[Rfam]
RNA sequence: AGUCGGUGAUGUUAUAAGAGUAGUGGACAGAUGUGAUUUCUGACAAAAUUUAAACUGAGACU
Numbered sequence: 001a002g003u004c005g006g007u008g009a010u011g012u013u014a015u016a017a018g019a020g021u022a023g024u025g026g027a028c029a030g031a032u033g034u035g036a037u038u039u040c041u042g043a044c045a046a047a048a049u050u051u052a053a054a055c056u057g058a059g060a061c062u
Stems, first nucleotide, its partner, number of pairs: 001062004

Rfam assigns this 62-nucleotide RNA from Liparis tanakae to the family "Small nucleolar RNA SNORD75". Rfam classes the family as a C/D-box small nucleolar RNA. The literature on the family includes a 2002 paper in Mol Cell Biol by Galardi et al., "Purified box C/D snoRNPs are able to reproduce site-specific 2'-O-methylation of target RNA in vitro". It scores 69 bits against the family's covariance model.